[Rfam]
RNA sequence: AGAGCAAAACGUUCUAUCGCUGUUUGCUUUCGGGCAAAUGGAGGAAAGUCCGGGCAACGCAGAGCAUCCUGCUUCCUAACGGGAAGGCGCCUUACCAGCGGGCGACAGCAAGUGCCACAGAAAAAAUACCGCCCCGAGUCAUCGGGGUAAGGGUGAAAACGUGAGGUAAGAGCUCACGGCUUUUCCGGGCGACCGGAAUUGCGGUAAACCUCAGGAGUUGAAAGACCAAAUAGGUCCCGAAUUUAAGGCGGCUCGUCUUAUUUGCCUUUACGGCAUGUUCGGGAUGGGUAGGUUGCUUAGAGCCUUACAGCAAUGUAAGGCCCAGAUUAAUGAUAGAAGCUGCUGCAAAGCAGUACAGAACCCGGCUUAUAGUAAUGCUGCUGGU
Numbered sequence: 001a002g003a004g005c006a007a008a009a010c011g012u013u014c015u016a017u018c019g020c021u022g023u024u025u026g027c028u029u030u031c032g033g034g035c036a037a038a039u040g041g042a043g044g045a046a047a048g049u050c051c052g053g054g055c056a057a058c059g060c061a062g063a064g065c066a067u068c069c070u071g072c073u074u075c076c077u078a079a080c081g082g083g084a085a086g087g088c089g090c091c092u093u094a095c096c097a098g099c100g101g102g103c104g105a106c107a108g109c110a111a112g113u114g115c116c117a118c119a120g121a122a123a124a125a126a127u128a129c130c131g132c133c134c135c136g137a138g139u140c141a142u143c144g145g146g147g148u149a150a151g152g153g154u155g156a157a158a159a160c161g162u163g164a165g166g167u168a169a170g171a172g173c174u175c176a177c178g179g180c181u182u183u184u185c186c187g188g189g190c191g192a193c194c195g196g197a198a199u200u201g202c203g204g205u206a207a208a209c210c211u212c213a214g215g216a217g218u219u220g221a222a223a224g225a226c227c228a229a230a231u232a233g234g235u236c237c238c239g240a241a242u243u244u245a246a247g248g249c250g251g252c253u254c255g256u257c258u259u260a261u262u263u264g265c266c267u268u269u270a271c272g273g274c275a276u277g278u279u280c281g282g283g284a285u286g287g288g289u290a291g292g293u294u295g296c297u298u299a300g301a302g303c304c305u306u307a308c309a310g311c312a313a314u315g316u317a318a319g320g321c322c323c324a325g326a327u328u329a330a331u332g333a334u335a336g337a338a339g340c341u342g343c344u345g346c347a348a349a350g351c352a353g354u355a356c357a358g359a360a361c362c363c364g365g366c367u368u369a370u371a372g373u374a375a376u377g378c379u380g381c382u383g384g385u
Stems, first nucleotide, its partner, number of pairs: 003379004009373002011370001012338007020041009046368003050365005055220004062271001064269001067216005072086005087106001088104004107211002112209002114205003129152002131148007160178006183198006224294004234285006263275004302321008